[Rfam]
RNA sequence: CGCGUUUUUCGCCCAGGCGGAGCUCGACCGCCGUUUGAAGUGAUGUACGGUCUCGUCGACGCACACCGCGACACCCAUGGGGUCGAGCCGAUCUGCAAGGUUCUGCAGGUUGCCCCG
Numbered sequence: 001c002g003c004g005u006u007u008u009u010c011g012c013c014c015a016g017g018c019g020g021a022g023c024u025c026g027a028c029c030g031c032c033g034u035u036u037g038a039a040g041u042g043a044u045g046u047a048c049g050g051u052c053u054c055g056u057c058g059a060c061g062c063a064c065a066c067c068g069c070g071a072c073a074c075c076c077a078u079g080g081g082g083u084c085g086a087g088c089c090g091a092u093c094u095g096c097a098a099g100g101u102u103c104u105g106c107a108g109g110u111u112g113c114c115c116c117g
Base pairs, nucleotide, nucleotide: 016032017031018030019029020028078117079116080115081114082113089112090111092109093108094107095106096105097104